[Rfam]
RNA sequence: AAUAGUUUUAUGCCACAUUAGUAUUCUUAUCUUGAAUUUCAGGAUUUUAUUCUGAAAAAAAAAUCAAAUCCAAAUUAAAAUACUAAAAUUCAAGAUAAGAAUACUGAUGUAGCAUAAAACUAUU
Numbered sequence: 001a002a003u004a005g006u007u008u009u010a011u012g013c014c015a016c017a018u019u020a021g022u023a024u025u026c027u028u029a030u031c032u033u034g035a036a037u038u039u040c041a042g043g044a045u046u047u048u049a050u051u052c053u054g055a056a057a058a059a060a061a062a063a064u065c066a067a068a069u070c071c072a073a074a075u076u077a078a079a080a081u082a083c084u085a086a087a088a089u090u091c092a093a094g095a096u097a098a099g100a101a102u103a104c105u106g107a108u109g110u111a112g113c114a115u116a117a118a119a120c121u122a123u124u
Base pairs, nucleotide, nucleotide: 001124002123003122004121005120006119007118008117009116010115011114012113013112015110016109017108018107019106020105021104022103023102024101025100026099027098029096030095031094032093033092034091035090036089037088038087039086041084042083045080046079047078048077
RNA: MIR7504 microRNA precursor family
Organism: Gossypium barbadense